[Rfam]
RNA: Small nucleolar RNA Z152/R70/R12/
RNA sequence: AAUGCUAUGAUGAGAGGAACACCAAUUGGUGUCGAUGGGCAGUGGGUAAAAGUGGGAGUUGUCUAAACAAUUCCUUCUCCGUGAGCCUUAUUAUGAAAACGACUUCUCUUUCCUCUGAGCAUU
Numbered sequence: 001a002a003u004g005c006u007a008u009g010a011u012g013a014g015a016g017g018a019a020c021a022c023c024a025a026u027u028g029g030u031g032u033c034g035a036u037g038g039g040c041a042g043u044g045g046g047u048a049a050a051a052g053u054g055g056g057a058g059u060u061g062u063c064u065a066a067a068c069a070a071u072u073c074c075u076u077c078u079c080c081g082u083g084a085g086c087c088u089u090a091u092u093a094u095g096a097a098a099a100c101g102a103c104u105u106c107u108c109u110u111u112c113c114u115c116u117g118a119g120c121a122u123u
Stems, first nucleotide, its partner, number of pairs: 001123005